About this RNA: This 505-nucleotide RNA sequence from Actinophytocola algeriensis belongs to the Rfam family "Saccharopolyspora sRNA 350". Gene Ontology term of the family: regulation of secondary metabolite biosynthetic process. A search with the family's covariance model found it, with a score of 137 bits. Pairs were carried over by alignment from the consensus structure, which was predicted with RNAfold. For this family Rfam cites "Prediction and characterization of small non-coding RNAs related to secondary metabolites in Saccharopolyspora erythraea" (Liu et al., PLoS One, 2013). NCBI's taxonomy places the organism under Bacteria, Bacillati, Actinomycetota, Pseudonocardiales, Actinophytocola.

RNA sequence: UUGACGCUGAACGCCCACUCCCCGCGUUCGCCGCUCAGCAGCUCGCUGCCGAAGUGGUCACCGUCGGCGAGGACGUCCAGCACCUGGUCCUCGUCGUACCUGCCAGGUGUCAGCUUGUUCGCUUUGCCGUGUGCCAGAAGGAAGAUCUCGUCACGCGGCUGACCGGCCCGGACGAUCAGGUCGCCCGGCCCGUACUCCCGCUGCUCGAACCGGUUCGCGAGCGCGCCGAGCGCCUGCUCGUCGGUGAAGUCACGCAGCAGCGGCAGUUCCCGCAGCUCGGCGGGCACGACGCGGAUCGCGGUGCCCUCGCUGACGAACGAGAGCCGCCCGUCGCCGAUCGCGUAGGACAGCCUGCGGUUCACGCGGUAGGUGCCGCCCGCGAUGUCCACCCACGGCAGCAUCUUCAGCAGCCACCGGCUGGUGAUGCCGCGCAUCUGCGGCUUGGUCUUGGUCGUGGUGGUGAGGUUGCGCGCCGCCUCGGUCGACAGGCUGCGCCGCACCGUGG
Dot-bracket structure: .....(.((.((..(.......(.((.((.....(((((.(...(.(((((..((..((..(((.(((......(..(((.((............))..))).)....))).....((((.(....(.((..(.(((..((.((....((....(((((((..((.......))..))....)))..)).))..))))..))).)...)).)....).)))))))..))..)).(.(..((((.((...((.((.(((.(.(......).)...)))))..)).))))))..).)...))))).).).))))).)).)).).......(((........)))........(..((((..(((.......)))))))..).)..)).)).)(.(((((.(((..((.(.......)))...))).))))).).....((((..((..(((.((.......)).)))...))..)))).(.(((...(.(......).).)))...)